[Rfam]
RNA sequence: AAUGAAACUUAACCUGUUUUUCUUCGCAUUCUUUUUUACGUUUCCCUGAUGAGGAGGCGUUCCGUCGUAUGACAAUGAAUACGAAGAUGAACAGACAAGCCUCCCAGCCGGGAGGCUUUUUUAUG
Numbered sequence: 001a002a003u004g005a006a007a008c009u010u011a012a013c014c015u016g017u018u019u020u021u022c023u024u025c026g027c028a029u030u031c032u033u034u035u036u037u038a039c040g041u042u043u044c045c046c047u048g049a050u051g052a053g054g055a056g057g058c059g060u061u062c063c064g065u066c067g068u069a070u071g072a073c074a075a076u077g078a079a080u081a082c083g084a085a086g087a088u089g090a091a092c093a094g095a096c097a098a099g100c101c102u103c104c105c106a107g108c109c110g111g112g113a114g115g116c117u118u119u120u121u122u123a124u125g
Base pairs, nucleotide, nucleotide: 016092017091018090019089021087022086023085024084025083026082028080029079030078031077033075034074036072037071038070042055043054044053056066057065058064059063097118098117099116100115101114102113103112104111105110

Phenylalanine leader peptide: a 125-nucleotide RNA from Citrobacter sp. JGM124.
On this family, see Zurawski et al., Proc Natl Acad Sci U S A 1978: "Nucleotide sequence of the leader region of the phenylalanine operon of Escherichia coli".
Lineage of the source: Bacteria > Pseudomonadati > Pseudomonadota > Enterobacterales > Citrobacter.
A search with the family's covariance model found it, with a score of 104 bits.